[Rfam]
RNA: TPP riboswitch aptamer (THI element)
Organism: Coprococcus sp. AF21-14LB
RNA sequence: AUAAAAUGAACGGGAGCUUGUAUGACAGGCUGAGAGGAAGGUAUGACCUUCGACCGAUAACCUGAUUUGGAUAAUGCCAACGUAGGGAUGCAGAGAAUGAGCAAU
Numbered sequence: 001a002u003a004a005a006a007u008g009a010a011c012g013g014g015a016g017c018u019u020g021u022a023u024g025a026c027a028g029g030c031u032g033a034g035a036g037g038a039a040g041g042u043a044u045g046a047c048c049u050u051c052g053a054c055c056g057a058u059a060a061c062c063u064g065a066u067u068u069g070g071a072u073a074a075u076g077c078c079a080a081c082g083u084a085g086g087g088a089u090g091c092a093g094a095g096a097a098u099g100a101g102c103a104a105u
Base pairs, nucleotide, nucleotide: 007092008091010089011056012055013054016030017029018028019027020026037051038050039049040048041047061086062085063084064083067080068079069078070077